[Rfam]
Small nucleolar RNA SNORA49: a 134-nucleotide RNA from Megalops atlanticus. About the family: The snoRNA ACA49 has no identified RNA target. By type it is an H/ACA-box small nucleolar RNA. The source organism's lineage runs through Eukaryota, Euteleostomi, Actinopteri, Teleostei and Megalops. Rfam 15.1 lists 722 matches to the family in 550 species.
RNA sequence: GUUCCCCUCCCUUACUCCAGGACCUGAGUGCAGUUUGGUGUCCUGGCAUUGACAGGGGAUACAGGAAGAGCUCUCUCUCCUCUUUCACAUUCAGCCACACUGCUGUCUGCGGGGCUCAGGAGAGGGCUGACAAC
Numbered sequence: 001g002u003u004c005c006c007c008u009c010c011c012u013u014a015c016u017c018c019a020g021g022a023c024c025u026g027a028g029u030g031c032a033g034u035u036u037g038g039u040g041u042c043c044u045g046g047c048a049u050u051g052a053c054a055g056g057g058g059a060u061a062c063a064g065g066a067a068g069a070g071c072u073c074u075c076u077c078u079c080c081u082c083u084u085u086c087a088c089a090u091u092c093a094g095c096c097a098c099a100c101u102g103c104u105g106u107c108u109g110c111g112g113g114g115c116u117c118a119g120g121a122g123a124g125g126g127c128u129g130a131c132a133a134c
Stems, first nucleotide, its partner, number of pairs: 003059006011051001017046006024038004069128003073124002082113003086109002